A member of the RNA family "Molybdenum/Tungsten riboswitch aptamer (Moco RNA motif)" from Desulfotruncus arcticus, 118 nucleotides long. Pairs were carried over by alignment from the consensus structure, which is taken from published work. A search with the family's covariance model found it, with a score of 76 bits.
RNA sequence: ACAUGUGUAUUACUCCGAGUUGGUUUAUCUAAGGCAAAACUAUGAUGACCCAGCCGAUAGGGUGUGAUGGGAAACUGUCACGCCUCCCAGUGUGGAAAGGAGUACAGUAUGUAACUUG
Dot-bracket structure: ..((.(....((((((..(((((.(((((...((.....))..))))).))))).....(((((((((((....)))))))))))((......))...))))))....).))......
Numbered sequence: 001a002c003a004u005g006u007g008u009a010u011u012a013c014u015c016c017g018a019g020u021u022g023g024u025u026u027a028u029c030u031a032a033g034g035c036a037a038a039a040c041u042a043u044g045a046u047g048a049c050c051c052a053g054c055c056g057a058u059a060g061g062g063u064g065u066g067a068u069g070g071g072a073a074a075c076u077g078u079c080a081c082g083c084c085u086c087c088c089a090g091u092g093u094g095g096a097a098a099g100g101a102g103u104a105c106a107g108u109a110u111g112u113a114a115c116u117u118g
Stems, first nucleotide, its partner, number of pairs: 003112002006109001011104006019054005025048005033041002060085011086095002